[Rfam]
RNA: Guanidine-I riboswitch aptamer
RNA sequence: UGAAAGUGUACCUAGGGUUCCGAAAAACCUUACUCUUAUGUAAUGUUUUUGUCUGGUCCGAGCGGUACAGGUAUUACUAUGUGUAAUAUCACACCGAGGGGAUAAAAGCCCGGUCGGG
Numbered sequence: 001u002g003a004a005a006g007u008g009u010a011c012c013u014a015g016g017g018u019u020c021c022g023a024a025a026a027a028c029c030u031u032a033c034u035c036u037u038a039u040g041u042a043a044u045g046u047u048u049u050u051g052u053c054u055g056g057u058c059c060g061a062g063c064g065g066u067a068c069a070g071g072u073a074u075u076a077c078u079a080u081g082u083g084u085a086a087u088a089u090c091a092c093a094c095c096g097a098g099g100g101g102a103u104a105a106a107a108g109c110c111c112g113g114u115c116g117g118g
Stems, first nucleotide, its partner, number of pairs: 007069006015059002020056002022053001023050006070090008092113001094116001099111003